mir-33 microRNA precursor family: a 67-nucleotide sequence from Anolis carolinensis.
The source organism's lineage runs through Eukaryota, Eumetazoa, Vertebrata, Lepidosauria and Anolis.
The family's consensus secondary structure was predicted with PFOLD.
For this family Rfam cites "Direct sequencing and expression analysis of a large number of miRNAs in Aedes aegypti and a multi-species survey of novel mosquito miRNAs" (Li et al., BMC Genomics, 2009).
Gene Ontology terms of the family: RISC complex and gene silencing by miRNA.
RNA sequence: CGGGGGUGCAUUGUAGUUGCAUUGCAUGUGUGGCCAAGCUGUGCAAUGCCCCUCCAGUGCAGCCCUG
Numbered sequence: 001c002g003g004g005g006g007u008g009c010a011u012u013g014u015a016g017u018u019g020c021a022u023u024g025c026a027u028g029u030g031u032g033g034c035c036a037a038g039c040u041g042u043g044c045a046a047u048g049c050c051c052c053u054c055c056a057g058u059g060c061a062g063c064c065c066u067g
Stems, first nucleotide, its partner, number of pairs: 001067004006063001007061007015053002019049001021047007
Dot-bracket structure: ((((.((((((((.((..(.(((((((.............))))))).)..)).))))))).)))))